[Rfam]
RNA sequence: UGCAGAGUAGACGUUAGAGCGUUAAGUGCCUGGUGAACAGGGAGUUGUCACUGGGACGAAGGAUUUCAUCCGCGGUUUUAAUGUCGCAUCCCGCUGCU
Numbered sequence: 001u002g003c004a005g006a007g008u009a010g011a012c013g014u015u016a017g018a019g020c021g022u023u024a025a026g027u028g029c030c031u032g033g034u035g036a037a038c039a040g041g042g043a044g045u046u047g048u049c050a051c052u053g054g055g056a057c058g059a060a061g062g063a064u065u066u067c068a069u070c071c072g073c074g075g076u077u078u079u080a081a082u083g084u085c086g087c088a089u090c091c092c093g094c095u096g097c098u
Stems, first nucleotide, its partner, number of pairs: 002097004010085010020074003026057002029055008040091003044087001061071004